[Rfam]
RNA sequence: CACGCUUCGUGUUCACUGUCUGUCUUGAUCUUUUUUUCAAGAAUUAAGGCACGCGGUGAAUGCCAAGCGUG
Numbered sequence: 001c002a003c004g005c006u007u008c009g010u011g012u013u014c015a016c017u018g019u020c021u022g023u024c025u026u027g028a029u030c031u032u033u034u035u036u037u038c039a040a041g042a043a044u045u046a047a048g049g050c051a052c053g054c055g056g057u058g059a060a061u062g063c064c065a066a067g068c069g070u071g
Stems, first nucleotide, its partner, number of pairs: 003069004009063008018054002023049007
RNA: mir-124 microRNA precursor family